[Rfam]
RNA sequence: UAUGGCUAUGACGAUAAAAAAUAUAAAAGUAGUGGACUGAAAAAUACAUUGAUGAAUAAAUUAAUUCUGAGCGAUG
Numbered sequence: 001u002a003u004g005g006c007u008a009u010g011a012c013g014a015u016a017a018a019a020a021a022u023a024u025a026a027a028a029g030u031a032g033u034g035g036a037c038u039g040a041a042a043a044a045u046a047c048a049u050u051g052a053u054g055a056a057u058a059a060a061u062u063a064a065u066u067c068u069g070a071g072c073g074a075u076g
Base pairs, nucleotide, nucleotide: 001076002075003074005072006071
Shown here is a 76-nucleotide sequence from Solanum tuberosum, a member of the family "Small nucleolar RNA R21". Gene Ontology terms of the family: nucleolus and RNA processing. A search with the family's covariance model found it, with a score of 47 bits. The literature on the family includes a 2001 paper in J Mol Biol by Barneche et al., "Identification of 66 box C/D snoRNAs in Arabidopsis thaliana: extensive gene duplications generated multiple isoforms predicting new ribosomal RNA 2'-O-methylation sites". It is annotated as a C/D-box small nucleolar RNA. The base pairs follow the family's consensus structure, which was predicted with PFOLD. Rfam 15.1 lists 472 matches to the family in 146 species.